RNA: permuted transfer-messenger RNA
RNA sequence: GGCAAUAAACGGCUUAUGAAAUAGACGUUACGGACCCGGGGGCAGUGCCCGGCGUCUCCACCAUUUCUUUAUACCUUUGUUAUCAAGGUGAUUUUAUGGGGACGAAACAGGAUCGACGUGCGUAAUAAAGAUAUUCUUUUUGCUCGGCAUGGUACCACCGUUACCGGACUAAAACUCUAUAAGUGCCAAUGAUAACCAUGAGGUGCUCGCUGUCGCUGCCUAA
Numbered sequence: 001g002g003c004a005a006u007a008a009a010c011g012g013c014u015u016a017u018g019a020a021a022u023a024g025a026c027g028u029u030a031c032g033g034a035c036c037c038g039g040g041g042g043c044a045g046u047g048c049c050c051g052g053c054g055u056c057u058c059c060a061c062c063a064u065u066u067c068u069u070u071a072u073a074c075c076u077u078u079g080u081u082a083u084c085a086a087g088g089u090g091a092u093u094u095u096a097u098g099g100g101g102a103c104g105a106a107a108c109a110g111g112a113u114c115g116a117c118g119u120g121c122g123u124a125a126u127a128a129a130g131a132u133a134u135u136c137u138u139u140u141u142g143c144u145c146g147g148c149a150u151g152g153u154a155c156c157a158c159c160g161u162u163a164c165c166g167g168a169c170u171a172a173a174a175c176u177c178u179a180u181a182a183g184u185g186c187c188a189a190u191g192a193u194a195a196c197c198a199u200g201a202g203g204u205g206c207u208c209g210c211u212g213u214c215g216c217u218g219c220c221u222a223a
Base pairs, nucleotide, nucleotide: 001144002143003142004141005140015133016132017131026122027121028120030119031118032117036052037051038050039049040048053104054103055102056101057100058099059098145160146159147158